[Rfam]
RNA sequence: GGCGAGAUGAUGAUCCUUUCCCCAGAUGAUCGACUAUGAACAUUCUGCGCGCUAUUUUUAUUCUCCCUCUAGGAGAUCAAGCCAGGACUCUGAUCGCC
Numbered sequence: 001g002g003c004g005a006g007a008u009g010a011u012g013a014u015c016c017u018u019u020c021c022c023c024a025g026a027u028g029a030u031c032g033a034c035u036a037u038g039a040a041c042a043u044u045c046u047g048c049g050c051g052c053u054a055u056u057u058u059u060a061u062u063c064u065c066c067c068u069c070u071a072g073g074a075g076a077u078c079a080a081g082c083c084a085g086g087a088c089u090c091u092g093a094u095c096g097c098c
Stems, first nucleotide, its partner, number of pairs: 001098005